[Rfam]
RNA: TPP riboswitch aptamer (THI element)
RNA sequence: GGGCAUCCUCACGGGAGCCCGGCGCACCGGGCUGAGAGGCGGGCUGCGGCGGCCUGCGACCGUCCGAACCUGAUCCGGGUCAUUCCGGCGAAGGGAGAACGUGCUUUGGCACG
Dot-bracket structure: .....(..((((((..(((((......)))))......((((((((...))))))))..)))).....(((...((((......))))...)))..))..)............
Numbered sequence: 001g002g003g004c005a006u007c008c009u010c011a012c013g014g015g016a017g018c019c020c021g022g023c024g025c026a027c028c029g030g031g032c033u034g035a036g037a038g039g040c041g042g043g044c045u046g047c048g049g050c051g052g053c054c055u056g057c058g059a060c061c062g063u064c065c066g067a068a069c070c071u072g073a074u075c076c077g078g079g080u081c082a083u084u085c086c087g088g089c090g091a092a093g094g095g096a097g098a099a100c101g102u103g104c105u106u107u108g109g110c111a112c113g
Stems, first nucleotide, its partner, number of pairs: 006101001009098002011063004017032005039057008069094003075088004